[Rfam]
RNA sequence: GCCGAAUCCUGCCACUGUCUGGAACGCAAGUGACCCACGAAGAAGAUCGGCAGGAGCGGGGGACCCAAGGUAAGUGCCCUACUGGUGGGCUGUCUGACGGCAGCUCUGCACAGCCAGUACGAGGCUUGGGGUGAAGCCACACGCACGAUGAUGUGGCCGGGCAACUCACACGGCUCGAACCCGACAGCUCACCUCGCAGGC
Numbered sequence: 001g002c003c004g005a006a007u008c009c010u011g012c013c014a015c016u017g018u019c020u021g022g023a024a025c026g027c028a029a030g031u032g033a034c035c036c037a038c039g040a041a042g043a044a045g046a047u048c049g050g051c052a053g054g055a056g057c058g059g060g061g062g063a064c065c066c067a068a069g070g071u072a073a074g075u076g077c078c079c080u081a082c083u084g085g086u087g088g089g090c091u092g093u094c095u096g097a098c099g100g101c102a103g104c105u106c107u108g109c110a111c112a113g114c115c116a117g118u119a120c121g122a123g124g125c126u127u128g129g130g131g132u133g134a135a136g137c138c139a140c141a142c143g144c145a146c147g148a149u150g151a152u153g154u155g156g157c158c159g160g161g162c163a164a165c166u167c168a169c170a171c172g173g174c175u176c177g178a179a180c181c182c183g184a185c186a187g188c189u190c191a192c193c194u195c196g197c198a199g200g201c
Base pairs, nucleotide, nucleotide: 001201002200003199007055008054009053010052011051012050013049056197057196058195059194060193061192066128067127068126069125129182130181131180137156138155139154140153159176160175161174162173
Shown here is a 201-nucleotide RNA from Streptomyces galilaeus, a member of the family "c-di-AMP riboswitch aptamer (ydaO/yuaA leader)".